[Rfam]
RNA sequence: UUGCGGGGUCGCGACUGGCGUUGAGAUGGAUUCCCAUCGGGGAGCGACUGGCGAGUACCGACCGUACGCCUGGGCCGGUGCG
Numbered sequence: 001u002u003g004c005g006g007g008g009u010c011g012c013g014a015c016u017g018g019c020g021u022u023g024a025g026a027u028g029g030a031u032u033c034c035c036a037u038c039g040g041g042g043a044g045c046g047a048c049u050g051g052c053g054a055g056u057a058c059c060g061a062c063c064g065u066a067c068g069c070c071u072g073g074g075c076c077g078g079u080g081c082g
Stems, first nucleotide, its partner, number of pairs: 003052002007049006015041002017070005026037004059077002062074002

A member of the RNA family "ZMP/ZTP riboswitch aptamer (pfl RNA motif)" from Agromyces aureus, 82 nucleotides long.
Its family is annotated with one-carbon metabolic process and regulation of purine nucleotide biosynthetic process in the Gene Ontology.
The match comes from Rfam's covariance-model search (48 bits).
NCBI's taxonomy places the organism under Bacteria, Bacillati, Actinomycetes, Micrococcales, Agromyces.